[Rfam]
Nucleotides: 146
Base pairs, nucleotide, nucleotide: 020053021052022051023050024049026048027047028046034043035042036041085122086121087120088119089118090117092115093114094113095112096111135146136145137144
Number, partner (000 for none) and nucleotide at each position: 001000a002000u003000c004000u005000u006000u007000a008000u009000g010000c011000a012000g013000g014000g015000g016000c017000a018000u019000u020053a021052c022051g023050u024049g025000u026048a027047u028046c029000a030000g031000u032000g033000a034043g035042g036041a037000u038000u039000c040000g041036u042035c043034c044000g045000a046028g047027a048026u049024c050023a051022u052021g053020u054000u055000u056000u057000u058000g059000c060000u061000g062000g063000u064000u065000g066000a067000a068000a069000a070000c071000u072000a073000u074000a075000a076000c077000c078000u079000g080000a081000c082000a083000g084000c085122u086121c087120c088119u089118u090117a091000u092115u093114a094113u095112u096111a097000u098000g099000g100000c101000u102000u103000u104000a105000u106000g107000c108000u109000u110000u111096u112095g113094a114093u115092a116000u117090u118089a119088a120087g121086g122085g123000a124000a125000u126000u127000u128000u129000u130000g131000g132000a133000a134000u135146u136145c137144u138000u139000c140000u141000u142000u143000u144137a145136g146135a